RNA sequence: AAAUGUUUAUCAUAUGGCAGGCCCGUCCCCCUGGGUCUCUCAGAGUUCCCAUGCCAGAGCAAACUGUGGCCCUGAACCAUUGCCUGGCCUCUGCCUAUAGGCUGAAGAGGGCUGCACAGUG
Numbered sequence: 001a002a003a004u005g006u007u008u009a010u011c012a013u014a015u016g017g018c019a020g021g022c023c024c025g026u027c028c029c030c031c032u033g034g035g036u037c038u039c040u041c042a043g044a045g046u047u048c049c050c051a052u053g054c055c056a057g058a059g060c061a062a063a064c065u066g067u068g069g070c071c072c073u074g075a076a077c078c079a080u081u082g083c084c085u086g087g088c089c090u091c092u093g094c095c096u097a098u099a100g101g102c103u104g105a106a107g108a109g110g111g112c113u114g115c116a117c118a119g120u121g
Base pairs, nucleotide, nucleotide: 001052005047013044015042016041017040019038020037021036022034023033067114068113069112070111071110072109078104079103083101084100085097086096087095089093
RNA: Small nucleolar RNA SNORA42/SNORA80 family